[Rfam]
RNA: FMN riboswitch aptamer (RFN element)
RNA sequence: UGUCAGUUUCAGGGAAGGUGCAAUUCCUUACUGGCGGUAACCUGCACCCCGGGUUUCAUAACGGGGAUGGCAGGAAGCCCGCGACCCGCGCAAGCGGCUGAUCCGGUGAGAUUCCGGAGCCAACGGUAUAGUCCGGAUGGAAGAAACGAGGG
Numbered sequence: 001u002g003u004c005a006g007u008u009u010c011a012g013g014g015a016a017g018g019u020g021c022a023a024u025u026c027c028u029u030a031c032u033g034g035c036g037g038u039a040a041c042c043u044g045c046a047c048c049c050c051g052g053g054u055u056u057c058a059u060a061a062c063g064g065g066g067a068u069g070g071c072a073g074g075a076a077g078c079c080c081g082c083g084a085c086c087c088g089c090g091c092a093a094g095c096g097g098c099u100g101a102u103c104c105g106g107u108g109a110g111a112u113u114c115c116g117g118a119g120c121c122a123a124c125g126g127u128a129u130a131g132u133c134c135g136g137a138u139g140g141a142a143g144a145a146a147c148g149a150g151g152g
Base pairs, nucleotide, nucleotide: 003150006147007146008145009144010143016028017027018026030132031131032122033121034082035081036080037079086097087096102118103117104116105115106114124135125134126133